[Rfam]
Nucleotides: 060
Stems, first nucleotide, its partner, number of pairs: 006058012021044002024041006
Number, partner (000 for none) and nucleotide at each position: 001000a002000a003000a004000a005000g006058a007057g008056a009055g010054g011053g012052g013051c014050a015049g016048u017047a018000a019000u020000c021044a022043u023000u024041u025040u026039c027038u028037u029036g030000u031000u032000c033000c034000a035000u036029c037028a038027a039026g040025a041024g042000g043022g044021u045000g046000c047017u048016a049015u050014u051013g052012c053011u054010c055009c056008u057007u058006u059000c060000u